[Rfam]
RNA sequence: GCGUCCUGCCUCGUGAUCGUCUUCUCACCCUUCACGGGCAGGCGGAUAAAGGGACGACCCCGCGAGGACGUGACUCGCGGGGCCGUUCG
Numbered sequence: 001g002c003g004u005c006c007u008g009c010c011u012c013g014u015g016a017u018c019g020u021c022u023u024c025u026c027a028c029c030c031u032u033c034a035c036g037g038g039c040a041g042g043c044g045g046a047u048a049a050a051g052g053g054a055c056g057a058c059c060c061c062g063c064g065a066g067g068a069c070g071u072g073a074c075u076c077g078c079g080g081g082g083c084c085g086u087u088c089g
Base pairs, nucleotide, nucleotide: 002044003043005042006041007040008039009038010037011036013035014034015033016032019029052088053087054086055085056084058082059081060080061079062078063077064076065075066074
Rfam assigns this 89-nucleotide RNA from Streptomyces gilvosporeus to the family "sodF sRNA". It scores 86 bits against the family's covariance model. Gene Ontology terms of the family: regulation of mRNA stability, mRNA binding and negative regulation of translation. On this family, see Kim et al., Nucleic Acids Res 2014: "Inverse regulation of Fe- and Ni-containing SOD genes by a Fur family regulator Nur through small RNA processed from 3'UTR of the sodF mRNA". Rfam classes the family as a small RNA.